[Rfam]
RNA sequence: GGAAGCGAACUGGGCAAUUUUGGGGUUUCUUAGCGGCAUUUGCCGGUACUUGAAUUGCAAUGCCCUUGGAAAUCCCAAAAGUGUUCGAAAUAAUC
Numbered sequence: 001g002g003a004a005g006c007g008a009a010c011u012g013g014g015c016a017a018u019u020u021u022g023g024g025g026u027u028u029c030u031u032a033g034c035g036g037c038a039u040u041u042g043c044c045g046g047u048a049c050u051u052g053a054a055u056u057g058c059a060a061u062g063c064c065c066u067u068g069g070a071a072a073u074c075c076c077a078a079a080a081g082u083g084u085u086c087g088a089a090a091u092a093a094u095c
Stems, first nucleotide, its partner, number of pairs: 008091001011088001013086001014084003021077009032066002035064005041059003
The family of this 95-nucleotide RNA from Phaedon cochleariae is "mir-2788 microRNA precursor family". The source organism's lineage runs through Eukaryota, Arthropoda, Hexapoda, Polyphaga and Phaedon. Gene Ontology terms of the family: miRNA-mediated post-transcriptional gene silencing and RISC complex.